[Rfam]
RNA sequence: CGGCAAGAUGUGUGUUGUAGGCCUACGCUGCUUUGCAGCUAUGGCCUCCACCACCGCCCCUUACUCGCCUGCGGCUCGACGGCAUCUUGCUCUGCGGGGCU
Numbered sequence: 001c002g003g004c005a006a007g008a009u010g011u012g013u014g015u016u017g018u019a020g021g022c023c024u025a026c027g028c029u030g031c032u033u034u035g036c037a038g039c040u041a042u043g044g045c046c047u048c049c050a051c052c053a054c055c056g057c058c059c060c061u062u063a064c065u066c067g068c069c070u071g072c073g074g075c076u077c078g079a080c081g082g083c084a085u086c087u088u089g090c091u092c093u094g095c096g097g098g099g100c101u
Stems, first nucleotide, its partner, number of pairs: 002091008012054003016050002019047003027039004059082002067075003
RNA: traJ-II RNA